[Rfam]
RNA sequence: ACGUGAGUUGGGUCCGGGCCUGUAUUGGGCUCAACGAGUCUGGCCAGGCUCAGGAGGGUUUGGCCGGGCGUCCUCAAGAGUGCGGAA
Numbered sequence: 001a002c003g004u005g006a007g008u009u010g011g012g013u014c015c016g017g018g019c020c021u022g023u024a025u026u027g028g029g030c031u032c033a034a035c036g037a038g039u040c041u042g043g044c045c046a047g048g049c050u051c052a053g054g055a056g057g058g059u060u061u062g063g064c065c066g067g068g069c070g071u072c073c074u075c076a077a078g079a080g081u082g083c084g085g086a087a
Stems, first nucleotide, its partner, number of pairs: 007035009018026001036072002038069014
RNA: gyrA RNA